[Rfam]
RNA sequence: AAUUUAUCGGUGGCAGUGACCACUAUAAAUG
Numbered sequence: 001a002a003u004u005u006a007u008c009g010g011u012g013g014c015a016g017u018g019a020c021c022a023c024u025a026u027a028a029a030u031g
Base pairs, nucleotide, nucleotide: 002030003029004028005027006026007025009024010023011022012021013020014018
RNA: Iron response element II